A member of the RNA family "Na+ riboswitch aptamer (DUF1646)" from Clostridium cavendishii, 53 nucleotides long. A reference for the family is White et al. (2022), "Na(+) riboswitches regulate genes for diverse physiological processes in bacteria", Nat Chem Biol. NCBI's taxonomy places the organism under Bacteria, Bacillota, Eubacteriales, Clostridiaceae, Clostridium cavendishii.
RNA sequence: GGUCGGAAUAAAACUUUUUAUUUCGAGAUAUUUUGUUUCUAGGGUGGGAAACU
Numbered sequence: 001g002g003u004c005g006g007a008a009u010a011a012a013a014c015u016u017u018u019u020a021u022u023u024c025g026a027g028a029u030a031u032u033u034u035g036u037u038u039c040u041a042g043g044g045u046g047g048g049a050a051a052c053u
Base pairs, nucleotide, nucleotide: 003026004025005024006021008019010017011016035052036051037050038049039048040047
The family's consensus secondary structure is taken from published work.